[Rfam]
Shown here is a 231-nucleotide sequence from Carassius auratus, a member of the family "Small nucleolar RNA SNORA53". It scores 102 bits against the family's covariance model. By type it is an H/ACA-box small nucleolar RNA. Rfam describes the family as follows. The snoRNA ACA53 belongs to the H/ACA family of pseudouridylation guide snoRNAs.
RNA sequence: AACACGCUCCUUAGAUCCACCUCUGGGGAGUUCCUCCGCUCCGGUUCUGUUGUGUCCUCUCUCUGGGAUCAGCAGGAUCGGUCCCGAGGCUCCCGGCAGCUUCACGGCUGUACAGUUGGAGGUGCUUGAGUCAUUGGCGUGUGAGAUCAGUCUACCUGCUCACCCAGAAUCCUCUCUGCCCUGAUCCUUCCCAGGAAAACCCCAGGGCAGAACAGCUGGGGAGCAGACAAA
Dot-bracket structure: .(((((((.(((((...(((((((((((((....((.(..(((..((((..(.((((........)))))..))))..)))..).))..))))).((((((....)))))).....)))))))).))))).....))))))).............(((((..(..((.......((((((((.....................))))))))....)).)..))))).....